Shown here is a 76-nucleotide sequence from Diaphorina citri, a member of the family "mir-124 microRNA precursor family".
[Rfam]
RNA sequence: UUCUCCUCGUGUUCACUGUGUGGCCUCUUAUGUUUUGUUUGAAAGUUCAUAAGGCACGCGGUGAAUGCCAAGAGCG
Numbered sequence: 001u002u003c004u005c006c007u008c009g010u011g012u013u014c015a016c017u018g019u020g021u022g023g024c025c026u027c028u029u030a031u032g033u034u035u036u037g038u039u040u041g042a043a044a045g046u047u048c049a050u051a052a053g054g055c056a057c058g059c060g061g062u063g064a065a066u067g068c069c070a071a072g073a074g075c076g
Stems, first nucleotide, its partner, number of pairs: 003074003009068008018059003024054003029051004
A reference for the family is Lai et al. (2003), "Computational identification of Drosophila microRNA genes", Genome Biol. The family's consensus secondary structure was predicted with PFOLD.